[Rfam]
RNA sequence: UGAAAUUUAUUUUGAGUGAGGUGGGACAGAAAUGAUAUUUUUGCAAAAUUUAUUUCGUCGUCCCACCCCAACUCGCAUUGCCUGUAGAAUUUCAUUUCGAAAUUCUCUAUGUUGGGGCCCCUGACUUUAAUUGAAAAAAGCUUGUUACAAGUGCAUUUUCGUUCGGUUAACUACUACUAAUGUGACUUUUUGGAUUCUAGAGCAUUGAUUUAU
Numbered sequence: 001u002g003a004a005a006u007u008u009a010u011u012u013u014g015a016g017u018g019a020g021g022u023g024g025g026a027c028a029g030a031a032a033u034g035a036u037a038u039u040u041u042u043g044c045a046a047a048a049u050u051u052a053u054u055u056c057g058u059c060g061u062c063c064c065a066c067c068c069c070a071a072c073u074c075g076c077a078u079u080g081c082c083u084g085u086a087g088a089a090u091u092u093c094a095u096u097u098c099g100a101a102a103u104u105c106u107c108u109a110u111g112u113u114g115g116g117g118c119c120c121c122u123g124a125c126u127u128u129a130a131u132u133g134a135a136a137a138a139a140g141c142u143u144g145u146u147a148c149a150a151g152u153g154c155a156u157u158u159u160c161g162u163u164c165g166g167u168u169a170a171c172u173a174c175u176a177c178u179a180a181u182g183u184g185a186c187u188u189u190u191u192g193g194a195u196u197c198u199a200g201a202g203c204a205u206u207g208a209u210u211u212a213u
Stems, first nucleotide, its partner, number of pairs: 001014005016068001021066007029056007037049005071085002075081002086106008108184008117175001122169005129163003133160005140152004191212006